Record summary:
This 59-nucleotide RNA sequence from Serinus canaria belongs to the Rfam family "Pseudomonas sRNA P36". It is annotated as a small RNA. For this family Rfam cites "Identification of 17 Pseudomonas aeruginosa sRNAs and prediction of sRNA-encoding genes in 10 diverse pathogens using the bioinformatic tool sRNAPredict2" (Livny et al., Nucleic Acids Res, 2006). The match comes from Rfam's covariance-model search (38 bits). The family has 2 seed sequences and 53 matches in Rfam 15.1.
RNA sequence: UAACCGGUUAACCGGUUAACCGGUAACCGGUAACCGGUUAACCGGUAACCGGUAACCGG
Number, nucleotide and partner (000 for none) at each position: 001u000002a000003a000004c000005c029006g028007g027008u026009u025010a024011a000012c000013c022014g021015g020016u000017u000018a000019a000020c015021c014022g013023g000024u010025a009026a008027c007028c006029g005030g000031u000032a000033a000034c059035c058036g057037g056038u055039u054040a053041a000042c052043c051044g050045g000046u000047a000048a000049c000050c044051g043052g042053u040054a039055a038056c037057c036058g035059g034